[Rfam]
RNA sequence: UAUGGGAAAUGACGAUUAUUUCAUCUCAUAAGUCCUUGAUGGAUUAUUUUUACAAUGAUGAAAAAUUGCACGUCAGUCUGAUCCCAGA
Numbered sequence: 001u002a003u004g005g006g007a008a009a010u011g012a013c014g015a016u017u018a019u020u021u022c023a024u025c026u027c028a029u030a031a032g033u034c035c036u037u038g039a040u041g042g043a044u045u046a047u048u049u050u051u052a053c054a055a056u057g058a059u060g061a062a063a064a065a066u067u068g069c070a071c072g073u074c075a076g077u078c079u080g081a082u083c084c085c086a087g088a
Base pairs, nucleotide, nucleotide: 001088003086004085005084006083007082
The record is an 88-nucleotide RNA from Brachypodium distachyon, which matches "Small nucleolar RNA Z122" in Rfam.
A reference for the family is Chen et al. (2003), "The high diversity of snoRNAs in plants: identification and comparative study of 120 snoRNA genes from Oryza sativa", Nucleic Acids Res.
It scores 72 bits against the family's covariance model.
The organism belongs to Brachypodium, within Eukaryota.
Rfam classes the family as a C/D-box small nucleolar RNA.